[Rfam]
A member of the RNA family "ASpks TB sRNA" from Streptomyces sp. PT12, 69 nucleotides long.
RNA sequence: CUUCAAUGAGCCGAGCCACAGCGGCUCUUGGCGGCCCUGGCCGUAGGUGGCCAGGAGUGCCUGGGCCUC
Numbered sequence: 001c002u003u004c005a006a007u008g009a010g011c012c013g014a015g016c017c018a019c020a021g022c023g024g025c026u027c028u029u030g031g032c033g034g035c036c037c038u039g040g041c042c043g044u045a046g047g048u049g050g051c052c053a054g055g056a057g058u059g060c061c062u063g064g065g066c067c068u069c
Stems, first nucleotide, its partner, number of pairs: 014026004027063001032059002037054003041050003
On this family, see Arnvig and Young, Mol Microbiol 2009: "Identification of small RNAs in Mycobacterium tuberculosis".